[Rfam]
RNA sequence: UGUUGAAAAAGGCAAACUCGUCGAAAGGCGGGGACGCAAAGCCACGGGUCUAAAGCGAUAGUUUUGCUAUGAUAGCCGGGCUGCCAAC
Numbered sequence: 001u002g003u004u005g006a007a008a009a010a011g012g013c014a015a016a017c018u019c020g021u022c023g024a025a026a027g028g029c030g031g032g033g034a035c036g037c038a039a040a041g042c043c044a045c046g047g048g049u050c051u052a053a054a055g056c057g058a059u060a061g062u063u064u065u066g067c068u069a070u071g072a073u074a075g076c077c078g079g080g081c082u083g084c085c086a087a088c
Stems, first nucleotide, its partner, number of pairs: 012037002017032006040082004045078003048073003055067004
Description
This 88-nucleotide sequence from Thermoanaerobacter brockii belongs to the Rfam family "c-di-GMP-I riboswitch aptamer". The source organism's lineage runs through Bacteria, Clostridia, Thermoanaerobacteraceae, Thermoanaerobacter and Thermoanaerobacter brockii.